L31-Actinobacteria ribosomal protein leader: a 47-nucleotide RNA sequence from Streptomyces uncialis. Pairs were carried over by alignment from the consensus structure, which is taken from published work.
[Rfam]
RNA sequence: UCGGCCCCGGUUCACGCCCGCGCAGCAGGCGUCGGCGACCCGGAGCC
Number, nucleotide and partner (000 for none) at each position: 001u000002c000003g047004g046005c045006c000007c043008c042009g041010g040011u000012u000013c000014a000015c037016g036017c035018c034019c000020g032021c031022g030023c029024a000025g000026c000027a000028g000029g023030c022031g021032u020033c000034g018035g017036c016037g015038a000039c000040c010041c009042g008043g007044a000045g005046c004047c003
It is annotated as a cis-regulatory leader.